[Rfam]
RNA sequence: CUGGGCUUAGGCCUAAUACUCACACGUGCCAAUACAGGGCAGCCGGGUGUCCGUAAGGAUGGCUGCAUGGGGCGCGUGGCGGAUCAUAAC
Numbered sequence: 001c002u003g004g005g006c007u008u009a010g011g012c013c014u015a016a017u018a019c020u021c022a023c024a025c026g027u028g029c030c031a032a033u034a035c036a037g038g039g040c041a042g043c044c045g046g047g048u049g050u051c052c053g054u055a056a057g058g059a060u061g062g063c064u065g066c067a068u069g070g071g072g073c074g075c076g077u078g079g080c081g082g083a084u085c086a087u088a089a090c
Stems, first nucleotide, its partner, number of pairs: 023078008035069002039066006049060004
About this RNA
Rfam assigns this 90-nucleotide RNA sequence from Acidithiobacillus ferrooxidans to the family "t44 RNA". Lineage of the source: Bacteria > Pseudomonadota > Acidithiobacillales > Acidithiobacillaceae > Acidithiobacillus ferrooxidans. It scores 45 bits against the family's covariance model. Rfam classes the family as a small RNA.